RNA sequence: CUGUAGCUAUGAUACGAGAGGUUGCGACACGCUCGGCUGCAUUGCCAUGCGACACGUGUUGGUUUUCUCGAGGAGCUAGCCUAUUAUCGUAAAUAGACGAGAGGA
Numbered sequence: 001c002u003g004u005a006g007c008u009a010u011g012a013u014a015c016g017a018g019a020g021g022u023u024g025c026g027a028c029a030c031g032c033u034c035g036g037c038u039g040c041a042u043u044g045c046c047a048u049g050c051g052a053c054a055c056g057u058g059u060u061g062g063u064u065u066u067c068u069c070g071a072g073g074a075g076c077u078a079g080c081c082u083a084u085u086a087u088c089g090u091a092a093a094u095a096g097a098c099g100a101g102a103g104g105a
Stems, first nucleotide, its partner, number of pairs: 015070002018067004025061007080104003087100004

The family of this 105-nucleotide RNA from Streptococcus ictaluri is "S10-Clostridia ribosomal protein leader". A reference for the family is Eckert and Weinberg (2020), "Discovery of 20 novel ribosomal leader candidates in bacteria and archaea", BMC Microbiol. Lineage of the source: Bacteria > Bacillati > Streptococcaceae > Streptococcus > Streptococcus ictaluri.